[Rfam]
RNA sequence: AGUUGCAAGGUCUAGGCCAUAGCAGAAGUGCUCAAGGUGUAACUGUAUCAGAUUCCAGUGAAUCUGCAAAUUCUGCU
Number, nucleotide and partner (000 for none) at each position: 001a000002g000003u000004u000005g000006c000007a000008a000009g000010g000011u000012c000013u045014a044015g000016g043017c000018c000019a000020u000021a077022g076023c075024a074025g073026a072027a071028g040029u039030g038031c000032u000033c000034a000035a000036g000037g000038u030039g029040u028041a000042a000043c016044u014045g013046u000047a000048u000049c066050a065051g064052a063053u062054u061055c060056c000057a000058g000059u000060g055061a054062a053063u052064c051065u050066g049067c000068a000069a000070a000071u027072u026073c025074u024075g023076c022077u021
Mammalian CPEB3 ribozyme: a 77-nucleotide RNA sequence from Crocodylus porosus.
The match comes from Rfam's covariance-model search (37 bits).
The family's consensus secondary structure is taken from published work.
Rfam's curators write: The mammalian CPEB3 ribozyme is a self cleaving RNA located in the second intron of the CPEB3 gene which belongs to a family of genes regulating messenger RNA polyadenylation.
Taxonomically the source falls in Crocodylus (Eukaryota, Opisthokonta, Gnathostomata, Euteleostomi).
Gene Ontology term of the family: RNA nuclease activity.